[Rfam]
RNA sequence: GGCCUCCCUCUGUGGGGUGAUCGAUCACGGGGCCCCAGAUCGAUCGCCCCACAGAGGGAGGUC
Numbered sequence: 001g002g003c004c005u006c007c008c009u010c011u012g013u014g015g016g017g018u019g020a021u022c023g024a025u026c027a028c029g030g031g032g033c034c035c036c037a038g039a040u041c042g043a044u045c046g047c048c049c050c051a052c053a054g055a056g057g058g059a060g061g062u063c
Stems, first nucleotide, its partner, number of pairs: 001063026029036002
Shown here is a 63-nucleotide RNA sequence from Myotis myotis, a member of the family "mir-9242 microRNA precursor family". Pairs were carried over by alignment from the consensus structure, which was predicted with RNAalifold. The source organism's lineage runs through Eukaryota, Gnathostomata, Eutheria, Vespertilionidae and Myotis.